[Rfam]
RNA sequence: GCCGAGCUCAUUAGCACGAGCUUGUCACCAUGAGGAGCAUGAAAGAGGUGAGAGCGCUGUGCCUCAUAGCUUGUUCCGGGUACAAAGUGCUCUAUGCUGGCCUGCCCAUUCCAAGUUGGGCAGUCAUUUGUAUGGGCUGGUUCCACGCAUCUCUUAAUGUGGAGGGAACCGUGUGAGGCUGGUUUCACAGAACAACGAAAAUCUCCUGCUGUCAACAGUGGAAGGAUAACGGAUUGCUGCGCUCUGCAUUCGCUUUGGACUUAGCUGCAGUGCUUCCAGUGAACCACCUCUAUU
Numbered sequence: 001g002c003c004g005a006g007c008u009c010a011u012u013a014g015c016a017c018g019a020g021c022u023u024g025u026c027a028c029c030a031u032g033a034g035g036a037g038c039a040u041g042a043a044a045g046a047g048g049u050g051a052g053a054g055c056g057c058u059g060u061g062c063c064u065c066a067u068a069g070c071u072u073g074u075u076c077c078g079g080g081u082a083c084a085a086a087g088u089g090c091u092c093u094a095u096g097c098u099g100g101c102c103u104g105c106c107c108a109u110u111c112c113a114a115g116u117u118g119g120g121c122a123g124u125c126a127u128u129u130g131u132a133u134g135g136g137c138u139g140g141u142u143c144c145a146c147g148c149a150u151c152u153c154u155u156a157a158u159g160u161g162g163a164g165g166g167a168a169c170c171g172u173g174u175g176a177g178g179c180u181g182g183u184u185u186c187a188c189a190g191a192a193c194a195a196c197g198a199a200a201a202u203c204u205c206c207u208g209c210u211g212u213c214a215a216c217a218g219u220g221g222a223a224g225g226a227u228a229a230c231g232g233a234u235u236g237c238u239g240c241g242c243u244c245u246g247c248a249u250u251c252g253c254u255u256u257g258g259a260c261u262u263a264g265c266u267g268c269a270g271u272g273c274u275u276c277c278a279g280u281g282a283a284c285c286a287c288c289u290c291u292a293u294u
Base pairs, nucleotide, nucleotide: 001038002037004023005022006021007020008019009018011016028035029034041294042293044291045290046289047288048287049286050285052284055281056280057279058278059277061273062272064270068266069265070264071263073261075259076258077257078251079250080249081248083246084245087242088241089240091239098236099235100234102232103231104230106225107224109223110222111221112220113219115216116215117214118213120212121211122210123209124208126152129149130148131147133145134144135143154159161206162205163204164203165202172197173196174195179190180189181188
Shown here is a 294-nucleotide RNA from Asparagus officinalis, a member of the family "Plant signal recognition particle RNA". By type it is a non-coding RNA gene. For this family Rfam cites "Towards the structure of the mammalian signal recognition particle" (Wild et al., Curr Opin Struct Biol, 2002). A search with the family's covariance model found it, with a score of 138 bits.